A member of the RNA family "mir-9242 microRNA precursor family" from Cnephaeus nilssonii, 64 nucleotides long. Its family is annotated with RISC complex and miRNA-mediated post-transcriptional gene silencing in the Gene Ontology.

RNA sequence: GGCCUCCCUCUGUGGGGCGAUUGAUGGUGGGGCCCCAAGAUUGAUCACCCUGCAGAAGGAGGCC
Numbered sequence: 001g002g003c004c005u006c007c008c009u010c011u012g013u014g015g016g017g018c019g020a021u022u023g024a025u026g027g028u029g030g031g032g033c034c035c036c037a038a039g040a041u042u043g044a045u046c047a048c049c050c051u052g053c054a055g056a057a058g059g060a061g062g063c064c
Stems, first nucleotide, its partner, number of pairs: 001064007009056009019046007028037003

It scores 63 bits against the family's covariance model. The source organism's lineage runs through Eukaryota, Gnathostomata, Boreoeutheria, Laurasiatheria and Cnephaeus.